A member of the RNA family "MIR4374 microRNA precursor family" from Glycine soja, 119 nucleotides long. A search with the family's covariance model found it, with a score of 106 bits. Taxonomically the source falls in Glycine subgen. Soja (Eukaryota, Tracheophyta, Euphyllophyta, Fabales).
[Rfam]
RNA sequence: CAAAGAUGGUGUUUACGUAAGCAACGUCUUUGAAAGUUCACAAACAAAGACGUUGCUUAUGUAAGCACCGUCUUCGUUUGCGAACUUUCAAAGACGUUGCUGGCAUAAGCACCGUCUUU
Numbered sequence: 001c002a003a004a005g006a007u008g009g010u011g012u013u014u015a016c017g018u019a020a021g022c023a024a025c026g027u028c029u030u031u032g033a034a035a036g037u038u039c040a041c042a043a044a045c046a047a048a049g050a051c052g053u054u055g056c057u058u059a060u061g062u063a064a065g066c067a068c069c070g071u072c073u074u075c076g077u078u079u080g081c082g083a084a085c086u087u088u089c090a091a092a093g094a095c096g097u098u099g100c101u102g103g104c105a106u107a108a109g110c111a112c113c114g115u116c117u118u119u
Stems, first nucleotide, its partner, number of pairs: 004117004009112007017104002020101001022099018041080005047074006054067004